[Rfam]
RNA sequence: AAAAAGUGCUUCUGUCGUGAGUGGCACACAUAGGGCAGUUUGACUGCUCUAUGUGCAGAAUCGGCAUCAAGAAAUUUCAGAACCAUAAUUUUUUGGUACCUGGGCAGCUAGUGAUUGUUGGUCCUAGUGCCCUU
Numbered sequence: 001a002a003a004a005a006g007u008g009c010u011u012c013u014g015u016c017g018u019g020a021g022u023g024g025c026a027c028a029c030a031u032a033g034g035g036c037a038g039u040u041u042g043a044c045u046g047c048u049c050u051a052u053g054u055g056c057a058g059a060a061u062c063g064g065c066a067u068c069a070a071g072a073a074a075u076u077u078c079a080g081a082a083c084c085a086u087a088a089u090u091u092u093u094u095g096g097u098a099c100c101u102g103g104g105c106a107g108c109u110a111g112u113g114a115u116u117g118u119u120g121g122u123c124c125u126a127g128u129g130c131c132c133u134u
Base pairs, nucleotide, nucleotide: 008084010082011081012080013026014025015024016023017022027055028054029053030052031051032050033049034048035047036046037045038044058077059076060075061074102132103131104130105129107128108127109126110125111124113123114122115121116120
Rfam assigns this 134-nucleotide RNA from Phyllostomus discolor to the family "U11 spliceosomal RNA". Rfam links the family to the GO terms mRNA 5'-splice site recognition, U11 snRNP and pre-mRNA 5'-splice site binding.